Shown here is a 53-nucleotide RNA, a member of the family "Streptococcus sRNA SpF59 (ldcC RNA)".
[Rfam]
RNA sequence: GGACCACUCCGACGGGGAGUUAAGGCCAUACGGACAGCCGGGUCCAAUGCCGA
Numbered sequence: 001g002g003a004c005c006a007c008u009c010c011g012a013c014g015g016g017g018a019g020u021u022a023a024g025g026c027c028a029u030a031c032g033g034a035c036a037g038c039c040g041g042g043u044c045c046a047a048u049g050c051c052g053a
Stems, first nucleotide, its partner, number of pairs: 001045005006020005
The base pairs follow the family's consensus structure, which was predicted with mfold.
Rfam classes the family as a small RNA.